[Rfam]
RNA sequence: UCGAGGUGACGAUAAAAACUUCACUUAAUCCAUUGAAAUUUAUGAUGUUACUGUGAUAUCUCGACAUGUUUUGAUCGG
Numbered sequence: 001u002c003g004a005g006g007u008g009a010c011g012a013u014a015a016a017a018a019c020u021u022c023a024c025u026u027a028a029u030c031c032a033u034u035g036a037a038a039u040u041u042a043u044g045a046u047g048u049u050a051c052u053g054u055g056a057u058a059u060c061u062c063g064a065c066a067u068g069u070u071u072u073g074a075u076c077g078g
Base pairs, nucleotide, nucleotide: 001078002077003076004075
A member of the RNA family "Small nucleolar RNA snoR14" from Arabis alpina, 78 nucleotides long. Its family is annotated with RNA processing and nucleolus in the Gene Ontology. Rfam 15.1 lists 668 matches to the family in 221 species. A search with the family's covariance model found it, with a score of 56 bits. It is annotated as a C/D-box small nucleolar RNA. Pairs were carried over by alignment from the consensus structure.